[Rfam]
RNA sequence: CUGUUACCGGGUUCAAGUAAUCCAGGAUAGGCUCUGUACAGCCAAGUCGGCCUGUUCUUGGUUACUUGCACUUGGUUGCAG
Numbered sequence: 001c002u003g004u005u006a007c008c009g010g011g012u013u014c015a016a017g018u019a020a021u022c023c024a025g026g027a028u029a030g031g032c033u034c035u036g037u038a039c040a041g042c043c044a045a046g047u048c049g050g051c052c053u054g055u056u057c058u059u060g061g062u063u064a065c066u067u068g069c070a071c072u073u074g075g076u077u078g079c080a081g
Stems, first nucleotide, its partner, number of pairs: 002080003007075006014068009024058010